[Rfam]
RNA sequence: GCUGGCAAGUGUUGAUCAGAGAACUACACCCUCAAUGGUAAAUUCCAUGUGUGUACCAAUAAUCUCCGCUUAUUAUCUGAUGCCUUG
Numbered sequence: 001g002c003u004g005g006c007a008a009g010u011g012u013u014g015a016u017c018a019g020a021g022a023a024c025u026a027c028a029c030c031c032u033c034a035a036u037g038g039u040a041a042a043u044u045c046c047a048u049g050u051g052u053g054u055a056c057c058a059a060u061a062a063u064c065u066c067c068g069c070u071u072a073u074u075a076u077c078u079g080a081u082g083c084c085u086u087g
Stems, first nucleotide, its partner, number of pairs: 004084004